RNA sequence: GAGAGAUGGAGGGUGACCGACGGUAGCCGCAGGGCAGCUGAGGAAGUUCCCCUCUCCAAGGGCAAGGUGGACGGACGCAAGUCCGUGCGGCGAGAGCCGUGGCAAGGGCACAGAAACGACACAGACCCGGUCCAAGGAUGAUCCGCUAGGCGGUGACGUUCCCGGGGAUUUGGUGAAACGGCGACUCCCCACCGGAGCAAGUCCGCACAGCGGGGCAGACCGGCCCGGGACCCGCGGGUAGGACGCUUAGUUGAAUGUCACCUGAAACAGAAAGGGGGCUACUACCAUCACUC
Numbered sequence: 001g002a003g004a005g006a007u008g009g010a011g012g013g014u015g016a017c018c019g020a021c022g023g024u025a026g027c028c029g030c031a032g033g034g035c036a037g038c039u040g041a042g043g044a045a046g047u048u049c050c051c052c053u054c055u056c057c058a059a060g061g062g063c064a065a066g067g068u069g070g071a072c073g074g075a076c077g078c079a080a081g082u083c084c085g086u087g088c089g090g091c092g093a094g095a096g097c098c099g100u101g102g103c104a105a106g107g108g109c110a111c112a113g114a115a116a117c118g119a120c121a122c123a124g125a126c127c128c129g130g131u132c133c134a135a136g137g138a139u140g141a142u143c144c145g146c147u148a149g150g151c152g153g154u155g156a157c158g159u160u161c162c163c164g165g166g167g168a169u170u171u172g173g174u175g176a177a178a179c180g181g182c183g184a185c186u187c188c189c190c191a192c193c194g195g196a197g198c199a200a201g202u203c204c205g206c207a208c209a210g211c212g213g214g215g216c217a218g219a220c221c222g223g224c225c226c227g228g229g230a231c232c233c234g235c236g237g238g239u240a241g242g243a244c245g246c247u248u249a250g251u252u253g254a255a256u257g258u259c260a261c262c263u264g265a266a267a268c269a270g271a272a273a274g275g276g277g278g279c280u281a282c283u284a285c286c287a288u289c290a291c292u293c
Stems, first nucleotide, its partner, number of pairs: 001293003005289005010283002012262006021040004045280003049277005054197004060226004066193005071086005087100005101188002108182002122172003126166005143153002201244004210235005

About this RNA: The record is a 293-nucleotide RNA sequence from Methanomassiliicoccaceae archaeon DOK, which matches "Archaeal RNase P" in Rfam. Gene Ontology terms of the family: tRNA processing, ribonuclease P activity and multimeric ribonuclease P complex. A reference for the family is Brown (1999), "The Ribonuclease P Database", Nucleic Acids Res. NCBI's taxonomy places the organism under Archaea, Methanobacteriati, Thermoplasmatota, Methanomassiliicoccales, Methanomassiliicoccaceae. The family's consensus secondary structure is taken from published work. The family's RNA type in Rfam is ribozyme.